[Rfam]
RNA: MIR6152 microRNA precursor family
Organism: Nicotiana attenuata
RNA sequence: UGGAUAGAUUACUGUGUUCGACUGUAUUCACGGCGUGAAAUAGGGGAUUACACUGUUUUUAAACGGAAAGUUUAUAACAUAAUAGACUACU
Numbered sequence: 001u002g003g004a005u006a007g008a009u010u011a012c013u014g015u016g017u018u019c020g021a022c023u024g025u026a027u028u029c030a031c032g033g034c035g036u037g038a039a040a041u042a043g044g045g046g047a048u049u050a051c052a053c054u055g056u057u058u059u060u061a062a063a064c065g066g067a068a069a070g071u072u073u074a075u076a077a078c079a080u081a082a083u084a085g086a087c088u089a090c091u
Stems, first nucleotide, its partner, number of pairs: 002090001004088001009085003013081003017077002023074002026072001030071002034065003037059007